[Rfam]
RNA sequence: AGGCGCGCGCUAUAAAGAGAGCUAUCCAUCGACAGUAUGGUUAUAAUAGACACUGUCAUGGAGUUGCUCUCUUUGUAGACACUGCU
Numbered sequence: 001a002g003g004c005g006c007g008c009g010c011u012a013u014a015a016a017g018a019g020a021g022c023u024a025u026c027c028a029u030c031g032a033c034a035g036u037a038u039g040g041u042u043a044u045a046a047u048a049g050a051c052a053c054u055g056u057c058a059u060g061g062a063g064u065u066g067c068u069c070u071c072u073u074u075g076u077a078g079a080c081a082c083u084g085c086u
Base pairs, nucleotide, nucleotide: 014074015073016072017071018070020068021067022066025062026061027060028059031057032056033055035053036052

A member of the RNA family "mir-46/mir-47/mir-281 microRNA precursor family" from Apis mellifera, 86 nucleotides long. The organism belongs to Apis, within Eukaryota. Rfam 15.1 lists 307 matches to the family in 262 species. A reference for the family is Lau et al. (2001), "An abundant class of tiny RNAs with probable regulatory roles in Caenorhabditis elegans", Science. Gene Ontology terms of the family: miRNA-mediated post-transcriptional gene silencing and RISC complex.